[Rfam]
RNA: 5' ureB small RNA
Organism: Polaromonas sp.
RNA sequence: UCGUCAAUUUGCUGCGGGCAGAUAAAGUGGAUGUGCGAGUCAAUGCCGCCGGUGGUGACGAUCAUGCCCUCGCAGCUGAUGACUUCGGUGCCCGGGCCGAUGAUGAUGUCAACGCCGGGUUGCACAUCUGGGUUGCCCGCCUUGCCGAUGGCGACGAUGCGCCCGCUUUUCAGUCCAAUGUCGGCCUUGACGAUGCCCCAGUGAUCAAUGAUCAGGGCGUUGGUCAUCACCGUGUCAACUGCGCCUUGCGCGUUGGUGCGCUGAGACUGUGCCAUGCCGUCACGA
Numbered sequence: 001u002c003g004u005c006a007a008u009u010u011g012c013u014g015c016g017g018g019c020a021g022a023u024a025a026a027g028u029g030g031a032u033g034u035g036c037g038a039g040u041c042a043a044u045g046c047c048g049c050c051g052g053u054g055g056u057g058a059c060g061a062u063c064a065u066g067c068c069c070u071c072g073c074a075g076c077u078g079a080u081g082a083c084u085u086c087g088g089u090g091c092c093c094g095g096g097c098c099g100a101u102g103a104u105g106a107u108g109u110c111a112a113c114g115c116c117g118g119g120u121u122g123c124a125c126a127u128c129u130g131g132g133u134u135g136c137c138c139g140c141c142u143u144g145c146c147g148a149u150g151g152c153g154a155c156g157a158u159g160c161g162c163c164c165g166c167u168u169u170u171c172a173g174u175c176c177a178a179u180g181u182c183g184g185c186c187u188u189g190a191c192g193a194u195g196c197c198c199c200a201g202u203g204a205u206c207a208a209u210g211a212u213c214a215g216g217g218c219g220u221u222g223g224u225c226a227u228c229a230c231c232g233u234g235u236c237a238a239c240u241g242c243g244c245c246u247u248g249c250g251c252g253u254u255g256g257u258g259c260g261c262u263g264a265g266a267c268u269g270u271g272c273c274a275u276g277c278c279g280u281c282a283c284g285a
Stems, first nucleotide, its partner, number of pairs: 002284003006280001009157003013153003017073001020070002028051003032048002035046003055067003075146001079142001081140001088136002090133004094128002096123002099121003105115001162271001164269002168266007175258001184218006221255003228248002232244003